The record is a 77-nucleotide sequence from Striga asiatica, which matches "mir-16 microRNA precursor family" in Rfam. The family's consensus secondary structure was predicted with PFOLD. On this family, see Calin et al., Proc Natl Acad Sci U S A 2002: "Frequent deletions and down-regulation of micro- RNA genes miR15 and miR16 at 13q14 in chronic lymphocytic leukemia". The organism belongs to Striga, within Eukaryota.
RNA sequence: GUCUUUUUCACACACCACUAAAAAUAUUGGAUUAUUGAUACAAUAAUCCAAUAUUUUUAGUGGUGUGUAGAAAAGAC
Numbered sequence: 001g002u003c004u005u006u007u008u009c010a011c012a013c014a015c016c017a018c019u020a021a022a023a024a025u026a027u028u029g030g031a032u033u034a035u036u037g038a039u040a041c042a043a044u045a046a047u048c049c050a051a052u053a054u055u056u057u058u059a060g061u062g063g064u065g066u067g068u069a070g071a072a073a074a075g076a077c
Stems, first nucleotide, its partner, number of pairs: 001077003005073003011067008021057001023055008